Source information
Shown here is a 63-nucleotide sequence from Propioniciclava sinopodophylli, a member of the family "Actino-pnp RNA". Pairs were carried over by alignment from the consensus structure, which is taken from published work. By type it is a cis-regulatory element. Taxonomically the source falls in Propioniciclava (Bacteria, Bacillati, Propionibacteriales, Propionibacteriaceae).
RNA sequence: UUCGGUCCUCGGUAGUGGCCUCCGGGGCGACAAGCGUCCCGUGGGCCUCGAUCGAAGACCGAA
Numbered sequence: 001u002u003c004g005g006u007c008c009u010c011g012g013u014a015g016u017g018g019c020c021u022c023c024g025g026g027g028c029g030a031c032a033a034g035c036g037u038c039c040c041g042u043g044g045g046c047c048u049c050g051a052u053c054g055a056a057g058a059c060c061g062a063a
Stems, first nucleotide, its partner, number of pairs: 001063007009055005017047005023041007